[Rfam]
RNA: Group II catalytic intron D1-D4-5
Organism: Andreesenella acetica
RNA sequence: UUGAACUCAUAACUGGAAGAGUAGAAUGAAGGAGUAACGCCCCGAAAUGCUCUCUCUAAUAGUCCCCACAUGCAUGAGAGGUCGAAUACUCGAUUGUAUGAAGCUGGGUAAGGCAGGUUGAAGGUUGCCCUAACAGAGAAGCUAUGACUCAAGUAGGGAUGCUGAGGAAAAACAUAUAGAGGUAUAUGUUGUAACUGAUAGACCUAGAGGCUAUAAA
Number, nucleotide and partner (000 for none) at each position: 001u000002u000003g000004a000005a000006c000007u000008c000009a000010u000011a000012a000013c000014u000015g000016g000017a000018a053019g052020a051021g050022u049023a048024g000025a000026a000027u000028g000029a000030a000031g043032g042033a000034g040035u000036a000037a000038c000039g000040c034041c000042c032043c031044g000045a000046a000047a000048u023049g022050c021051u020052c019053u018054c209055u208056c207057u206058a000059a000060u000061a000062g000063u000064c108065c000066c107067c106068a105069c100070a099071u098072g097073c096074a095075u000076g000077a000078g091079a090080g089081g000082u000083c000084g000085a000086a000087u000088a000089c080090u079091c078092g000093a000094u000095u074096g073097u072098a071099u070100g069101a000102a000103g000104c000105u068106g067107g066108g064109u000110a000111a000112g000113g000114c000115a205116g204117g203118u202119u201120g000121a000122a000123g196124g195125u194126u193127g192128c191129c167130c166131u165132a000133a000134c000135a163136g162137a000138g000139a000140a000141g000142c000143u000144a000145u000146g000147a000148c000149u000150c000151a000152a000153g000154u000155a000156g000157g000158g000159a000160u000161g000162c136163u135164g000165a131166g130167g129168a000169a000170a000171a190172a189173c188174a187175u186176a185177u184178a183179g000180a000181g000182g000183u178184a177185u176186a175187u174188g173189u172190u171191g128192u127193a126194a125195c124196u123197g000198a000199u000200a000201g119202a118203c117204c116205u115206a057207g056208a055209g054210g000211c000212u000213a000214u000215a000216a000217a000